Shown here is a 77-nucleotide RNA from Frankliniella occidentalis, a member of the family "mir-190 microRNA precursor family".
Clan: mir-50 clan.
The match comes from Rfam's covariance-model search (81 bits).
The family's consensus secondary structure was predicted with RNAalifold.
NCBI's taxonomy places the organism under Eukaryota, Protostomia, Panarthropoda, Dicondylia, Frankliniella.
RNA sequence: AUUACUGUGAGAUAUGUUUGAUAUUCUUGGUUGUAUUUUUUCUACCAACCAGGAAUCAAACAUAUUCCUACAGUGAA
Number, nucleotide and partner (000 for none) at each position: 001a000002u000003u000004a000005c073006u072007g071008u070009g069010a000011g066012a065013u064014a063015u062016g061017u060018u059019u058020g057021a056022u055023a000024u053025u052026c000027u000028u000029g050030g049031u048032u047033g046034u000035a000036u000037u000038u000039u000040u000041u000042c000043u000044a000045c000046c033047a032048a031049c030050c029051a000052g025053g024054a000055a022056u021057c020058a019059a018060a017061c016062a015063u014064a013065u012066u011067c000068c000069u009070a008071c007072a006073g005074u000075g000076a000077a000